Source information: Rfam assigns this 172-nucleotide sequence from Paraclostridium benzoelyticum to the family "Lysine riboswitch aptamer". Rfam's curators write: Riboswitches are metabolite binding domains within certain messenger RNAs that serve as precision sensors for their corresponding targets. Allosteric rearrangement of mRNA structure is mediated by ligand binding, and this results in modulation of gene expression. This family includes riboswitches that sense lysine in a number of genes involved in lysine metabolism, including lysC. Rfam 15.1 lists 3,224 matches to the family in 1,923 species.
[Rfam]
RNA sequence: ACUAAUGGUAGAGGUUGCAUUAUUAAAUAGUACUAUUAUUGAGGGAAAGCACCUAUGAUUUAAUAGGAAAGGUAAUGAUGCCGAAAUAUAUAAGUUAAGCUUAAAGCUUAUAUGUUGGGGUUAUGUAUAAGAUAUAUAACACUGUCACUUUAUGUGGAGGGCUAUCUUUAGA
Dot-bracket structure: ......(((((.....(((((((((.......((((((......................))))))......)))))))))...((((((((((((........))))))))))))((.((((((((.....)))))))).)).((((.....))))....)))))......
Numbered sequence: 001a002c003u004a005a006u007g008g009u010a011g012a013g014g015u016u017g018c019a020u021u022a023u024u025a026a027a028u029a030g031u032a033c034u035a036u037u038a039u040u041g042a043g044g045g046a047a048a049g050c051a052c053c054u055a056u057g058a059u060u061u062a063a064u065a066g067g068a069a070a071g072g073u074a075a076u077g078a079u080g081c082c083g084a085a086a087u088a089u090a091u092a093a094g095u096u097a098a099g100c101u102u103a104a105a106g107c108u109u110a111u112a113u114g115u116u117g118g119g120g121u122u123a124u125g126u127a128u129a130a131g132a133u134a135u136a137u138a139a140c141a142c143u144g145u146c147a148c149u150u151u152a153u154g155u156g157g158a159g160g161g162c163u164a165u166c167u168u169u170a171g172a
Stems, first nucleotide, its partner, number of pairs: 007166005017081009033066006085116012117143002120140008145157004